[Rfam]
mir-454 microRNA precursor family: a 102-nucleotide RNA sequence from Pangasianodon hypophthalmus. It scores 85 bits against the family's covariance model. Gene Ontology terms of the family: miRNA-mediated post-transcriptional gene silencing and RISC complex. The family's consensus secondary structure was predicted with RNAalifold. The family has 20 seed sequences and 696 matches in Rfam 15.1.
RNA sequence: GUGUGUGUUCCUGAUCCCUGAGACCCUAUCAGUAUUGUCUCUGCUGUGCGCUGUGUUCAGAGUAGUGCAAUAUUGCUUAUAGGGUUUCAGGUUUUGGGUUAA
Numbered sequence: 001g002u003g004u005g006u007g008u009u010c011c012u013g014a015u016c017c018c019u020g021a022g023a024c025c026c027u028a029u030c031a032g033u034a035u036u037g038u039c040u041c042u043g044c045u046g047u048g049c050g051c052u053g054u055g056u057u058c059a060g061a062g063u064a065g066u067g068c069a070a071u072a073u074u075g076c077u078u079a080u081a082g083g084g085u086u087u088c089a090g091g092u093u094u095u096g097g098g099u100u101a102a
Stems, first nucleotide, its partner, number of pairs: 020088010030075009041065005